[Rfam]
RNA sequence: UCGGGACAUCGCAGACUCCCGGCUUUCCCAAGAUGCCUGGCAUCCAAGCUCUGC
Numbered sequence: 001u002c003g004g005g006a007c008a009u010c011g012c013a014g015a016c017u018c019c020c021g022g023c024u025u026u027c028c029c030a031a032g033a034u035g036c037c038u039g040g041c042a043u044c045c046a047a048g049c050u051c052u053g054c
Stems, first nucleotide, its partner, number of pairs: 001022006011054005032044005
Dot-bracket structure: ((((((....[[[[[.)))))).........(((((...))))).....]]]]]